Shown here is a 160-nucleotide RNA sequence from Thermocatellispora tengchongensis, a member of the family "c-di-AMP riboswitch aptamer (ydaO/yuaA leader)". This family represents a conserved RNA structure found upstream of the ydaO and yuaA genes in Bacillus subtilis and related genes in other bacteria. NCBI's taxonomy places the organism under Bacteria, Actinomycetota, Actinomycetes, Streptosporangiaceae, Thermocatellispora.
RNA sequence: GGCCUGGUCACGCCGAGUCCCGGACCCGCCGCGCGGGCCACGGGAGCCGGGGACCCGCUUCGGGGCGUCACCGCCCCUUGGGGUGAAUCCGCGACGAGCGGUAGGGCAUCUCCAUGUCCGAACCCGACAGCUAACCCGGUAGGCGCGAUGGAGAGGAGAA
Numbered sequence: 001g002g003c004c005u006g007g008u009c010a011c012g013c014c015g016a017g018u019c020c021c022g023g024a025c026c027c028g029c030c031g032c033g034c035g036g037g038c039c040a041c042g043g044g045a046g047c048c049g050g051g052g053a054c055c056c057g058c059u060u061c062g063g064g065g066c067g068u069c070a071c072c073g074c075c076c077c078u079u080g081g082g083g084u085g086a087a088u089c090c091g092c093g094a095c096g097a098g099c100g101g102u103a104g105g106g107c108a109u110c111u112c113c114a115u116g117u118c119c120g121a122a123c124c125c126g127a128c129a130g131c132u133a134a135c136c137c138g139g140u141a142g143g144c145g146c147g148a149u150g151g152a153g154a155g156g157a158g159a160a
Base pairs, nucleotide, nucleotide: 011145012144013143014142018045019044020043021042022041046140047139048138049137050136051135056080057079081125082124083123089101090100091099092098104119105118106117107116
Dot-bracket structure: ..........((((...(((((..................)))))((((((....((.....................))(((.....((((.....))))..((((........))))...))).........)))))).))))...............